[Rfam]
RNA sequence: AGUUGCAUUACAGGGCAGAGUCUCCAUUGGCAGGUGGCCACUACUUAUAAGAUUGUACAUGCAUAGUAGUAAUACAAUGCAAUAUUCAUUAGUGUGCCCUCUGCCAAAGGAGAUUUGCCCGGCAAUUCUUCU
Numbered sequence: 001a002g003u004u005g006c007a008u009u010a011c012a013g014g015g016c017a018g019a020g021u022c023u024c025c026a027u028u029g030g031c032a033g034g035u036g037g038c039c040a041c042u043a044c045u046u047a048u049a050a051g052a053u054u055g056u057a058c059a060u061g062c063a064u065a066g067u068a069g070u071a072a073u074a075c076a077a078u079g080c081a082a083u084a085u086u087c088a089u090u091a092g093u094g095u096g097c098c099c100u101c102u103g104c105c106a107a108a109g110g111a112g113a114u115u116u117g118c119c120c121g122g123c124a125a126u127u128c129u130u131c132u
Stems, first nucleotide, its partner, number of pairs: 005128001007126003011122001013120007022112004028106007036098003